RNA sequence: UCAAUCAGCGAGGGGUGCCGACUGUCAGCCAUGGACCAGUUCCAUGCGCUGACCGGCUGAGAAUCCAAACCCUUAGAACCUGAUCCGGAUCAUGCCGGCGGAGGGACUGCUGCGGUUUCUUGUU
Numbered sequence: 001u002c003a004a005u006c007a008g009c010g011a012g013g014g015g016u017g018c019c020g021a022c023u024g025u026c027a028g029c030c031a032u033g034g035a036c037c038a039g040u041u042c043c044a045u046g047c048g049c050u051g052a053c054c055g056g057c058u059g060a061g062a063a064u065c066c067a068a069a070c071c072c073u074u075a076g077a078a079c080c081u082g083a084u085c086c087g088g089a090u091c092a093u094g095c096c097g098g099c100g101g102a103g104g105g106a107c108u109g110c111u112g113c114g115g116u117u118u119c120u121u122g123u124u
Base pairs, nucleotide, nucleotide: 006112007111008110009109010108011073012072013071014070016067017057018056019055020054079104080103081102085098086097087096088095
RNA: TPP riboswitch aptamer (THI element)